[Rfam]
RNA sequence: CUCGUUGCUGGGUCGCCUGUAACGGG
Numbered sequence: 001c002u003c004g005u006u007g008c009u010g011g012g013u014c015g016c017c018u019g020u021a022a023c024g025g026g
Stems, first nucleotide, its partner, number of pairs: 001026008010017002